The family of this 49-nucleotide sequence from Shewanella baltica is "Guanidine-II riboswitch aptamer (mini-ykkC)". A reference for the family is Huang et al. (2017), "The Structure of the Guanidine-II Riboswitch", Cell Chem Biol. Rfam's curators put it in the seed alignment. Taxonomically the source falls in Shewanella baltica (Bacteria, Pseudomonadota, Gammaproteobacteria, Shewanella). From the family's description: Simpler in structure and has fewer highly conserved nucleotide positions than the ykkC-yxkD leader.

RNA sequence: GCUUAGGGACGACCCUAAAUACGCCUAAUCUAACAUGGGGACGACCCCU
Numbered sequence: 001g002c003u004u005a006g007g008g009a010c011g012a013c014c015c016u017a018a019a020u021a022c023g024c025c026u027a028a029u030c031u032a033a034c035a036u037g038g039g040g041a042c043g044a045c046c047c048c049u
Stems, first nucleotide, its partner, number of pairs: 001020001003018006037048004